[Rfam]
RNA: miR-430 microRNA precursor family
Organism: Lates calcarifer
RNA sequence: AACAUUACCCUAACACAGGCACAGACUUGAAGCAGUAAGUGCUAUUUGUUGGGGCAGUUUAA
Numbered sequence: 001a002a003c004a005u006u007a008c009c010c011u012a013a014c015a016c017a018g019g020c021a022c023a024g025a026c027u028u029g030a031a032g033c034a035g036u037a038a039g040u041g042c043u044a045u046u047u048g049u050u051g052g053g054g055c056a057g058u059u060u061a062a
Stems, first nucleotide, its partner, number of pairs: 004058003008054004013049003017045001018043005025036003